RNA sequence: AAGUGUCAUAGCUCUUGUAGAAUUUGUCUAGCAGGUUUUCCGGUCCUCACUGGAAGACCGCC
Numbered sequence: 001a002a003g004u005g006u007c008a009u010a011g012c013u014c015u016u017g018u019a020g021a022a023u024u025u026g027u028c029u030a031g032c033a034g035g036u037u038u039u040c041c042g043g044u045c046c047u048c049a050c051u052g053g054a055a056g057a058c059c060g061c062c
Base pairs, nucleotide, nucleotide: 034059035058036057037056038055039054040053041052042051043050044049
RNA: U7 small nuclear RNA
Organism: Microcebus murinus